[Rfam]
RNA sequence: AUCGGUGACCGGGCCCCUCUGGCGAGAGUUUGCGGCGCUCUCGUGAUGUCGGCGCCACCU
Numbered sequence: 001a002u003c004g005g006u007g008a009c010c011g012g013g014c015c016c017c018u019c020u021g022g023c024g025a026g027a028g029u030u031u032g033c034g035g036c037g038c039u040c041u042c043g044u045g046a047u048g049u050c051g052g053c054g055c056c057a058c059c060u
Base pairs, nucleotide, nucleotide: 006054007053009052010051011050012049022044023043024042025041026040027039028038029037
Source information
This 60-nucleotide sequence from Frigidibacter albus belongs to the Rfam family "terC RNA".